Shown here is an 80-nucleotide RNA from Branchiostoma floridae, a member of the family "mir-2013 microRNA precursor family". NCBI's taxonomy places the organism under Eukaryota, Eumetazoa, Bilateria, Deuterostomia, Branchiostoma. Rfam links the family to the GO terms miRNA-mediated post-transcriptional gene silencing and RISC complex. The sequence is in the family's curated seed alignment.
[Rfam]
RNA sequence: UGCCCCUGAGCCAUUGCAUUUGUCUGCCUUGUCUGUGCAUUGAGAUGUCCAAAGCAGCAUAGUGCAAUGGUGUCAGGGUC
Dot-bracket structure: .((((.((((((((((((((...((((.((....................)).))))...))))))))))).))))))).